[Rfam]
RNA sequence: GGAUGUGACUCUGGAGAAGCUCGCCCCACGAUACGAGUGCCGAAGGUGCAAUGCGGCUGAACGCCGCUAAUCUCUCAGGCAAAAGGACAGAGGAAAACCC
Numbered sequence: 001g002g003a004u005g006u007g008a009c010u011c012u013g014g015a016g017a018a019g020c021u022c023g024c025c026c027c028a029c030g031a032u033a034c035g036a037g038u039g040c041c042g043a044a045g046g047u048g049c050a051a052u053g054c055g056g057c058u059g060a061a062c063g064c065c066g067c068u069a070a071u072c073u074c075u076c077a078g079g080c081a082a083a084a085g086g087a088c089a090g091a092g093g094a095a096a097a098c099c100c
Stems, first nucleotide, its partner, number of pairs: 006095001009092005020037004039080003042076002046074001048072001053067005
A member of the RNA family "Glycine riboswitch aptamer" from Flintibacter faecis, 100 nucleotides long.
This family represents the bacterial glycine riboswitch.